This 98-nucleotide RNA sequence from Acetivibrio thermocellus belongs to the Rfam family "c-di-GMP-I riboswitch aptamer". The organism belongs to Acetivibrio thermocellus, within Bacteria. A search with the family's covariance model found it, with a score of 76 bits.
[Rfam]
RNA sequence: UAUGAAACAGGGCAAAAUCAUCGAAAGGUGAUGACGCAAAGCCAUGGGUCUACUGUUUUAAAACAAUGUUUUAAAGCUAUGAUCGCCAGGCUGCCAUU
Numbered sequence: 001u002a003u004g005a006a007a008c009a010g011g012g013c014a015a016a017a018u019c020a021u022c023g024a025a026a027g028g029u030g031a032u033g034a035c036g037c038a039a040a041g042c043c044a045u046g047g048g049u050c051u052a053c054u055g056u057u058u059u060a061a062a063a064c065a066a067u068g069u070u071u072u073a074a075a076g077c078u079a080u081g082a083u084c085g086c087c088a089g090g091c092u093g094c095c096a097u098u
Stems, first nucleotide, its partner, number of pairs: 012037002017032006040092004045088003048083003055077009